Background: The family of this 159-nucleotide sequence from Photinus pyralis is "U12 minor spliceosomal RNA". Rfam classes the family as a spliceosomal small nuclear RNA. For this family Rfam cites "Pre-mRNA splicing: the discovery of a new spliceosome doubles the challenge" (Tarn and Steitz, Trends Biochem Sci, 1997).
[Rfam]
RNA sequence: GUGCCUUAAACUAAUGAGUAAGGAAAAUAUGCGAGCCUUGGUAACGCUUGGCUCAUUUGCCUAGCACAGCCUAGAGCUUAGAAUUUUUGCGAGGGCACAGGUCGUCCCGUGGAUACUUUGCCUACUUUUGCAAAUCGUCCUGGUGAAGCGAUCUGCCCC
Numbered sequence: 001g002u003g004c005c006u007u008a009a010a011c012u013a014a015u016g017a018g019u020a021a022g023g024a025a026a027a028u029a030u031g032c033g034a035g036c037c038u039u040g041g042u043a044a045c046g047c048u049u050g051g052c053u054c055a056u057u058u059g060c061c062u063a064g065c066a067c068a069g070c071c072u073a074g075a076g077c078u079u080a081g082a083a084u085u086u087u088u089g090c091g092a093g094g095g096c097a098c099a100g101g102u103c104g105u106c107c108c109g110u111g112g113a114u115a116c117u118u119u120g121c122c123u124a125c126u127u128u129u130g131c132a133a134a135u136c137g138u139c140c141u142g143g144u145g146a147a148g149c150g151a152u153c154u155g156c157c158c159c
Stems, first nucleotide, its partner, number of pairs: 004023005033054005040047001055078001057076002093158004099154007108143001111140004117134005